[Rfam]
A member of the RNA family "Fluoride riboswitch aptamer (crcB RNA motif)" from Clostridium pasteurianum, 61 nucleotides long.
Lineage of the source: Bacteria > Bacillati > Bacillota > Clostridia > Clostridium pasteurianum.
For this family Rfam cites "Fluoride ion encapsulation by Mg2+ ions and phosphates in a fluoride riboswitch" (Ren et al., Nature, 2012).
RNA sequence: UAAGUCAUAGGUGAUGGAGUUCGCCUUUAAAUGCUUGAAUGCUGAUGACUCCUACAGGUCU
Dot-bracket structure: .........[[[[..((((((]]]].......((......))....)))))).........